This 80-nucleotide sequence from Chaetura pelagica belongs to the Rfam family "mir-1791 microRNA precursor family". The family has 2 seed sequences and 371 matches in Rfam 15.1. The base pairs follow the family's consensus structure, which was predicted with RNAalifold. NCBI's taxonomy places the organism under Eukaryota, Chordata, Amniota, Apodidae, Chaetura.
RNA sequence: UACACCAUGUUGGGCUGCAUCAGUUGUGCCAUGUUAUGAAAGCUAACGCAGUGUGACUGGUGCAGGCUGACAAGAUGUGU
Numbered sequence: 001u002a003c004a005c006c007a008u009g010u011u012g013g014g015c016u017g018c019a020u021c022a023g024u025u026g027u028g029c030c031a032u033g034u035u036a037u038g039a040a041a042g043c044u045a046a047c048g049c050a051g052u053g054u055g056a057c058u059g060g061u062g063c064a065g066g067c068u069g070a071c072a073a074g075a076u077g078u079g080u
Base pairs, nucleotide, nucleotide: 002080003079004078005077006074008072009071010070011069012068013067015065016064017063018062019061020060021059022058023057024056025055026054027053028052032048033047034046035045036044